[Rfam]
RNA: Fibro-purF RNA
RNA sequence: GGCCGCUUCCCCGCUUGCACCCGCAUGGGUGGGCUACGACCCCGAGGUAAGGGAAGCAAAACAUUCCGAAGAGGC
Numbered sequence: 001g002g003c004c005g006c007u008u009c010c011c012c013g014c015u016u017g018c019a020c021c022c023g024c025a026u027g028g029g030u031g032g033g034c035u036a037c038g039a040c041c042c043c044g045a046g047g048u049a050a051g052g053g054a055a056g057c058a059a060a061a062c063a064u065u066c067c068g069a070a071g072a073g074g075c
Stems, first nucleotide, its partner, number of pairs: 005057007018031005039048003